[Rfam]
Background
This 75-nucleotide RNA from Streptomonospora alba belongs to the Rfam family "6C RNA". On this family, see Weinberg et al., Nucleic Acids Res 2007: "Identification of 22 candidate structured RNAs in bacteria using the CMfinder comparative genomics pipeline". By type it is a cis-regulatory element. NCBI's taxonomy places the organism under Bacteria, Actinomycetota, Streptosporangiales, Nocardiopsidaceae, Streptomonospora.

Nucleotides: 075
Stems, first nucleotide, its partner, number of pairs: 002035005008030007038071013
Number, partner (000 for none) and nucleotide at each position: 001000a002035a003034c004033g005032g006031u007000g008030c009029c010028g011027g012026c013025u014024c015000u016000c017000c018000c019000c020000c021000c022000c023000g024014g025013a026012g027011c028010c029009g030008g031006a032005c033004c034003g035002u036000a037000a038071g039070a040069c041068g042067g043066c044065c045064c046063c047062c048061g049060c050059u051000a052000u053000c054000c055000c056000c057000c058000c059050g060049g061048c062047g063046g064045g065044g066043g067042c068041c069040g070039u071038c072000g073000u074000c075000a